[Rfam]
RNA sequence: GGGAAUGUAGCUCAUUGGCACAGCAUUUGCCUAACAUGUAUGAGAUCCUGGGUUCAAUUCCCAGCAUCACCA
Numbered sequence: 001g002g003g004a005a006u007g008u009a010g011c012u013c014a015u016u017g018g019c020a021c022a023g024c025a026u027u028u029g030c031c032u033a034a035c036a037u038g039u040a041u042g043a044g045a046u047c048c049u050g051g052g053u054u055c056a057a058u059u060c061c062c063a064g065c066a067u068c069a070c071c072a
Base pairs, nucleotide, nucleotide: 001071002070005067006066007065010024011023012022026042028040029039030038048064049063050062051061052060
The family of this 72-nucleotide RNA from Heterocephalus glaber is "tRNA". Rfam's curators write: Transfer RNA (tRNA) molecules are approximately 80 nucleotides in length. The organism belongs to Heterocephalus, within Eukaryota.